RNA sequence: GAGCUUUCAGAAGCAGUGUAUUCUAAAGCUU
Numbered sequence: 001g002a003g004c005u006u007u008c009a010g011a012a013g014c015a016g017u018g019u020a021u022u023c024u025a026a027a028g029c030u031u
Stems, first nucleotide, its partner, number of pairs: 001031007009024004014018001
Annotation:
The record is a 31-nucleotide RNA from Rousettus aegyptiacus, which matches "Iron response element II" in Rfam. The literature on the family includes a 1989 paper in Proc Natl Acad Sci U S A by Koeller et al., "A cytosolic protein binds to structural elements within the iron regulatory region of the transferrin receptor mRNA". The base pairs follow the family's consensus structure, which is taken from published work. Rfam classes the family as a cis-regulatory element. About the family: IRE, TFRC, SLC40A1, SDHB, SLC11A2, CDC42BPA, ACO2, ALAS2_H.SAPIENS, CDC14A, EPAS1, ALAS2, qoxD, Hao1, NDUFS1, transferrin, Aconitate. Its family is annotated with response to iron ion in the Gene Ontology. A search with the family's covariance model found it, with a score of 31 bits.